[Rfam]
Annotation
The family of this 60-nucleotide RNA from Mus musculus is "mir-7094 microRNA precursor family". The organism belongs to Mus, within Eukaryota.
RNA sequence: UCUGAAGAGGAUACAGGGUCUGAAGUGACAAUGACAUCUACUCUGCUGUUCUCUCCACAG
Numbered sequence: 001u002c003u004g005a006a007g008a009g010g011a012u013a014c015a016g017g018g019u020c021u022g023a024a025g026u027g028a029c030a031a032u033g034a035c036a037u038c039u040a041c042u043c044u045g046c047u048g049u050u051c052u053c054u055c056c057a058c059a060g
Base pairs, nucleotide, nucleotide: 003057004056006054007053008052009051010050011049012048013047014045015044016043017042018041019040022038023037025035026034